[Rfam]
Shown here is a 139-nucleotide sequence from Oryza meyeriana, a member of the family "Small nucleolar RNA Z247". On this family, see Chen et al., Nucleic Acids Res 2003: "The high diversity of snoRNAs in plants: identification and comparative study of 120 snoRNA genes from Oryza sativa".

RNA sequence: GCAGUCGACAAUGAUGAUCUAAUCAGUUAUAUCAUAGCCGGCCUAGAUGAUGACUUCGAGCCGGUUAUCGCAGCACUGGUUGCACGACCGGAUCCAAUCAUCAUCGGAGAAGCCUUCGUUCAAUUAUUAAGUUUUGAGU
Numbered sequence: 001g002c003a004g005u006c007g008a009c010a011a012u013g014a015u016g017a018u019c020u021a022a023u024c025a026g027u028u029a030u031a032u033c034a035u036a037g038c039c040g041g042c043c044u045a046g047a048u049g050a051u052g053a054c055u056u057c058g059a060g061c062c063g064g065u066u067a068u069c070g071c072a073g074c075a076c077u078g079g080u081u082g083c084a085c086g087a088c089c090g091g092a093u094c095c096a097a098u099c100a101u102c103a104u105c106g107g108a109g110a111a112g113c114c115u116u117c118g119u120u121c122a123a124u125u126a127u128u129a130a131g132u133u134u135u136g137a138g139u
Base pairs, nucleotide, nucleotide: 005137006136007135008134089107091105092104093103
The match comes from Rfam's covariance-model search (59 bits).